[Rfam]
RNA sequence: GCCUGCAUUCGAAAGUGACCGCGGCCUUGCCCGUGGCCUGGUCAUCGAUAGUGCAGGGAGAGGAACGCCGAGAGCUUUCCCGUGUUUGGGGGGGUCCGUCCCCUCCCUCCCAAACCCUGUUGCUGUCGGACA
Numbered sequence: 001g002c003c004u005g006c007a008u009u010c011g012a013a014a015g016u017g018a019c020c021g022c023g024g025c026c027u028u029g030c031c032c033g034u035g036g037c038c039u040g041g042u043c044a045u046c047g048a049u050a051g052u053g054c055a056g057g058g059a060g061a062g063g064a065a066c067g068c069c070g071a072g073a074g075c076u077u078u079c080c081c082g083u084g085u086u087u088g089g090g091g092g093g094g095u096c097c098g099u100c101c102c103c104u105c106c107c108u109c110c111c112a113a114a115c116c117c118u119g120u121u122g123c124u125g126u127c128g129g130a131c132a
Base pairs, nucleotide, nucleotide: 002057003056004055005054006053007052008051009050015045016044017043018042019041020040021039023038024037025036026035068129069128070127071126073124074123075122084115085114086113087112088111089109090108091107092106093105